[Rfam]
RNA sequence: AGAGUAGGCGCAGGCGGUUGCAGAUCAGUCAUAGUUACUGGUUUGAGGAAAGUCCGGACUCCCGAAAGACCAAACUUGCUGGAUAACGUCCAGUGCGAGCGAUCGUGAGGAUAGUGCCACAGAAAGAUACCGCCAAAAAAGUUAGGAGUUAGAAGUUAGGAGUUAGGAAUUAUUAACUUUUAACUCAUCACUCAUAACUCUUAACUAAAUUUGGUAAGGGUGCAAAGGUGCGGUAAGAGCGCACCAGCAGUAUCGAGAGGUGCUGGCUCGGUAAACCCCGGUUGGGAGCAAGGCGAUAGGAACUACGGUUGGUCUUUUACCAGUUCCGCUCAAUGAGAGCCGCUAGAGGCGUUUGGUAACAAGCGUCCCAGAUAGAUAACUGCCCUCGCAAGAGAACAGAACCCGGCUUAUGUCCUGCUCUCUCC
Dot-bracket structure: ((((((((.((((((((((.(((((((((.......)))))))))....[[[.[[[[.((((.....[[...(((.(((((((.....)))))(((((....)))).)((...(((((...........((((((((........................................................................))))))..)).......((((((.......)))))).((((((((....))))))).)..)))..))))))))).))))...(((.......(.(....(((((...]])))))....).)........)))......((((((((....))))))))..........)))))))..................]]]]]]].)))))))))))....
Bacterial RNase P class A: a 425-nucleotide RNA from Nostoc commune. Pairs were carried over by alignment from the consensus structure, which is taken from published work. By type it is a ribozyme.